The record is a 96-nucleotide RNA sequence from Oryza meyeriana, which matches "Small nucleolar RNA R30/Z108" in Rfam. About the family: snoR30 is a C/D box small nucleolar RNA which acts as a methylation guide for 18S ribosomal RNA in plants. Clan: SNORD100 clan. Pairs were carried over by alignment from the consensus structure, which was predicted with PFOLD. A search with the family's covariance model found it, with a score of 106 bits. By type it is a C/D-box small nucleolar RNA. Gene Ontology terms of the family: RNA processing and nucleolus.
RNA sequence: GGCUGUUGUGAUGAGGAUAUCAAGCUCCCUCUCCUGAAGGCAUUGAGGACGGUCGCUGGCAGAAUCGAUCCAAUUAACAUAUCCACCACUGAGUAA
Numbered sequence: 001g002g003c004u005g006u007u008g009u010g011a012u013g014a015g016g017a018u019a020u021c022a023a024g025c026u027c028c029c030u031c032u033c034c035u036g037a038a039g040g041c042a043u044u045g046a047g048g049a050c051g052g053u054c055g056c057u058g059g060c061a062g063a064a065u066c067g068a069u070c071c072a073a074u075u076a077a078c079a080u081a082u083c084c085a086c087c088a089c090u091g092a093g094u095a096a
Base pairs, nucleotide, nucleotide: 006096007095008094009093
For this family Rfam cites "Experimental RNomics. Identification of 140 Candidates for Small Non-Messenger RNAs in the Plant Arabidopsis thaliana" (Marker et al., Curr Biol, 2002).